[Rfam]
RNA sequence: GAUCAAACUAUAAGACGUGGGAGUUGGCAAAUAACUACCGAAUCGGAAUACUGCCUUGUUGCAGGAUCCAUAUUCGCUGCGAUGCCAGCUA
Numbered sequence: 001g002a003u004c005a006a007a008c009u010a011u012a013a014g015a016c017g018u019g020g021g022a023g024u025u026g027g028c029a030a031a032u033a034a035c036u037a038c039c040g041a042a043u044c045g046g047a048a049u050a051c052u053g054c055c056u057u058g059u060u061g062c063a064g065g066a067u068c069c070a071u072a073u074u075c076g077c078u079g080c081g082a083u084g085c086c087a088g089c090u091a
Base pairs, nucleotide, nucleotide: 022090023089024088025087026086027085028084029083039076040075041074042073043072045069046068047067051064052063053062054061

The record is a 91-nucleotide sequence from Lactobacillus crispatus, which matches "Lacto-usp RNA" in Rfam. NCBI's taxonomy places the organism under Bacteria, Bacillota, Lactobacillales, Lactobacillus, Lactobacillus crispatus. It is annotated as a small RNA. It scores 94 bits against the family's covariance model.